[Rfam]
A member of the RNA family "Bacterial RNase P class A" from a Parvibaculaceae bacterium, 386 nucleotides long. The base pairs follow the family's consensus structure, which is taken from published work. The family's RNA type in Rfam is ribozyme. Taxonomically the source falls in Parvibaculaceae (Bacteria, Pseudomonadati, Alphaproteobacteria, Hyphomicrobiales).

RNA sequence: UCAGAUGGCCGGAUGACCGCUGUGGCUUCGCUCACAGAGGAAAGUCCGGGCUCCACGGAAGCACGGUGCCGGGUAACUCCCGGCGAGGGCGACCUCAGGGAAAGUGCCACAGAAAGCAAACCGCCUGGACUUCGGUCCAGGUAAGGGUGAAAGGGUGCGGUAAGAGCGCACCGCCGUCCUGGCAACAGGAUGGGCACGGUAAACCCCACCGGGAGCAAAACCAAAUAGGGAUGGUGGACGGCAUUUAUGUCGUCAGGUCAGUUUUCGGAUCGCCAUCCGGGUUGGUUGCAUGAGGCGGUCGGCGACGGGCGUCCCAGAUGAAUGGUCAUCGGUCGGAGUCUUCGGACUUCGGGAUACAGAACCCGGCUUAUAGGCCAUCUGACCCU
Numbered sequence: 001u002c003a004g005a006u007g008g009c010c011g012g013a014u015g016a017c018c019g020c021u022g023u024g025g026c027u028u029c030g031c032u033c034a035c036a037g038a039g040g041a042a043a044g045u046c047c048g049g050g051c052u053c054c055a056c057g058g059a060a061g062c063a064c065g066g067u068g069c070c071g072g073g074u075a076a077c078u079c080c081c082g083g084c085g086a087g088g089g090c091g092a093c094c095u096c097a098g099g100g101a102a103a104g105u106g107c108c109a110c111a112g113a114a115a116g117c118a119a120a121c122c123g124c125c126u127g128g129a130c131u132u133c134g135g136u137c138c139a140g141g142u143a144a145g146g147g148u149g150a151a152a153g154g155g156u157g158c159g160g161u162a163a164g165a166g167c168g169c170a171c172c173g174c175c176g177u178c179c180u181g182g183c184a185a186c187a188g189g190a191u192g193g194g195c196a197c198g199g200u201a202a203a204c205c206c207c208a209c210c211g212g213g214a215g216c217a218a219a220a221c222c223a224a225a226u227a228g229g230g231a232u233g234g235u236g237g238a239c240g241g242c243a244u245u246u247a248u249g250u251c252g253u254c255a256g257g258u259c260a261g262u263u264u265u266c267g268g269a270u271c272g273c274c275a276u277c278c279g280g281g282u283u284g285g286u287u288g289c290a291u292g293a294g295g296c297g298g299u300c301g302g303c304g305a306c307g308g309g310c311g312u313c314c315c316a317g318a319u320g321a322a323u324g325g326u327c328a329u330c331g332g333u334c335g336g337a338g339u340c341u342u343c344g345g346a347c348u349u350c351g352g353g354a355u356a357c358a359g360a361a362c363c364c365g366g367c368u369u370a371u372a373g374g375c376c377a378u379c380u381g382a383c384c385c386u
Base pairs, nucleotide, nucleotide: 001382002381003380004379005378006377007376008375009374010373011371012330013329014328015327016326017325018324020037021036022035023034024033025032042369043368044367046366047365048364049363050362051215052214053213054212059265060264061263064211065210066209067208068207069083070082071081072080073079084098085096086095087094088093099206100205104204105203106200107199108198121146122145123142124141125140126139127138128137129136130135154172155171156170157169158168159167173195174193175192176191177190178189179188180187181186219287220286221285222284229278230277231276232275233274234273256271257270258269259268294313295312296311297310299308300307301306
Dot-bracket structure: ((((((((((((((((((.((((((......))))))....[[[.[[[[[((((....[[[..((((((((((.....)))))(((((....)))).)((...(((((............((((((((((....))))))))..)).......((((((.......))))))(((((((((....)))))))).)..)))..)))))))))))))...((((......((((((.....................((((...]]]..)))).)))))).....))))......((((.(((....))).))))..........)))))))...............................]]]]]]]].).))))))))))....